Rfam assigns this 56-nucleotide RNA sequence from Danio rerio to the family "mir-725 microRNA precursor family".
Pairs were carried over by alignment from the consensus structure, which was predicted with RNAalifold.
The source organism's lineage runs through Eukaryota, Chordata, Osteoglossocephalai, Danioninae and Danio.
Gene Ontology terms of the family: miRNA-mediated post-transcriptional gene silencing and RISC complex.
RNA sequence: UGCUAGGAAUGGUGGCUGAGAUGAAGAGCAGGAUUUCAGUCAUUGUUUCUAGUAGU
Numbered sequence: 001u002g003c004u005a006g007g008a009a010u011g012g013u014g015g016c017u018g019a020g021a022u023g024a025a026g027a028g029c030a031g032g033a034u035u036u037c038a039g040u041c042a043u044u045g046u047u048u049c050u051a052g053u054a055g056u
Stems, first nucleotide, its partner, number of pairs: 002053021